[Rfam]
RNA sequence: UUUGUACAAGGAUGAUGAUUCAAUUAGAUGUGUGAAAAGAGAAAUCUUUUCUGAACUCAAUUUUUUGAGGCAAACUGUCUGACUUGAUAAU
Number, nucleotide and partner (000 for none) at each position: 001u000002u090003u089004g088005u087006a000007c086008a085009a084010g083011g000012a000013u000014g000015a000016u000017g000018a000019u000020u000021c000022a000023a000024u000025u000026a000027g000028a000029u000030g000031u000032g000033u000034g000035a000036a000037a000038a000039g000040a000041g000042a000043a000044a000045u000046c000047u000048u000049u000050u000051c000052u000053g000054a000055a000056c000057u000058c000059a000060a000061u000062u000063u000064u000065u000066u000067g000068a000069g000070g000071c000072a000073a000074a000075c000076u000077g000078u000079c000080u000081g000082a000083c010084u009085u008086g007087a005088u004089a003090a002091u000
The family of this 91-nucleotide RNA sequence from Trifolium subterraneum is "Small nucleolar RNA Z266". Rfam 15.1 lists 719 matches to the family in 213 species. Rfam classes the family as a C/D-box small nucleolar RNA. Rfam links the family to the GO terms nucleolus and RNA processing. On this family, see Chen et al., Nucleic Acids Res 2003: "The high diversity of snoRNAs in plants: identification and comparative study of 120 snoRNA genes from Oryza sativa". Lineage of the source: Eukaryota > Euphyllophyta > Magnoliopsida > Fabales > Trifolium.